RNA sequence: UGGAAAUGAUGAUUCAUUAUCUGAAAUUAUGUGAUGAAAUAUUCUGAAUACCUCUAGACUGUCAAGUUCUGAUCUGG
Numbered sequence: 001u002g003g004a005a006a007u008g009a010u011g012a013u014u015c016a017u018u019a020u021c022u023g024a025a026a027u028u029a030u031g032u033g034a035u036g037a038a039a040u041a042u043u044c045u046g047a048a049u050a051c052c053u054c055u056a057g058a059c060u061g062u063c064a065a066g067u068u069c070u071g072a073u074c075u076g077g
Base pairs, nucleotide, nucleotide: 001076002075003074004073
Dot-bracket structure: ((((....................................................................)))).